[Rfam]
Rfam assigns this 45-nucleotide sequence from Rhizobium sp. RU20A to the family "ctRNA". The base pairs follow the family's consensus structure, which is taken from published work. The organism belongs to Rhizobium, within Bacteria. Rfam's curators write: This family represents a group of ctRNAs (or counter-transcribed RNAs) from p42d and related plasmids. ctRNAs are small, highly structured, antisense sequences which are involved in negative regulation. Members of this family are known to bind to the mRNA of repC causing translational repression. This model contains the predicted stem-loop structure followed by a U-rich tract which is proposed to act as a Rho-independent transcriptional terminator.

RNA sequence: AGAAGGGCUUCCGCGGGCAACCGUUCGGGGGCCUUUUUCUUUUGC
Numbered sequence: 001a002g003a004a005g006g007g008c009u010u011c012c013g014c015g016g017g018c019a020a021c022c023g024u025u026c027g028g029g030g031g032c033c034u035u036u037u038u039c040u041u042u043u044g045c
Base pairs, nucleotide, nucleotide: 005034006033007032008031009030010029011028012027015025016022